[Rfam]
RNA sequence: CACCCACGUACACCACUGGAUCUGUGCCCAGCGAUCCCCUGUUCGUUUCGGCGAAUUCAGGGUUGAUUGCUGCGGCAGUUCGAUUUAUUCAAGGAGCCAUCAAAUCCCCAUGAUGUCAAUCUUCCAAUCGACAGGUCCUAGAGCAAUCGGGGGUUGGGAUGCCAGGUUCGCCGUAACAGGCUUGAGCCUGGUCGAACAGCCCUAUGAAGACGCCAUAUUCCACACCUUUUUUCCGAGAUCGUCGAUCCAUGAGGUUGGGGAUAACCAUGGCUUUUGCCUACAGUU
Numbered sequence: 001c002a003c004c005c006a007c008g009u010a011c012a013c014c015a016c017u018g019g020a021u022c023u024g025u026g027c028c029c030a031g032c033g034a035u036c037c038c039c040u041g042u043u044c045g046u047u048u049c050g051g052c053g054a055a056u057u058c059a060g061g062g063u064u065g066a067u068u069g070c071u072g073c074g075g076c077a078g079u080u081c082g083a084u085u086u087a088u089u090c091a092a093g094g095a096g097c098c099a100u101c102a103a104a105u106c107c108c109c110a111u112g113a114u115g116u117c118a119a120u121c122u123u124c125c126a127a128u129c130g131a132c133a134g135g136u137c138c139u140a141g142a143g144c145a146a147u148c149g150g151g152g153g154u155u156g157g158g159a160u161g162c163c164a165g166g167u168u169c170g171c172c173g174u175a176a177c178a179g180g181c182u183u184g185a186g187c188c189u190g191g192u193c194g195a196a197c198a199g200c201c202c203u204a205u206g207a208a209g210a211c212g213c214c215a216u217a218u219u220c221c222a223c224a225c226c227u228u229u230u231u232u233c234c235g236a237g238a239u240c241g242u243c244g245a246u247c248c249a250u251g252a253g254g255u256u257g258g259g260g261a262u263a264a265c266c267a268u269g270g271c272u273u274u275u276g277c278c279u280a281c282a283g284u285u
Stems, first nucleotide, its partner, number of pairs: 018138008026076003029072003033068004037062005043055001044053003085130001087128003093117002096114001098112001149202003161193001162191008170181002209278001211276001212271005225260003229257001233254002237247004

Notes
Rfam assigns this 285-nucleotide RNA from Cytospora mali to the family "A. fumigatus sRNA Afu_309". It scores 138 bits against the family's covariance model. By type it is a small RNA.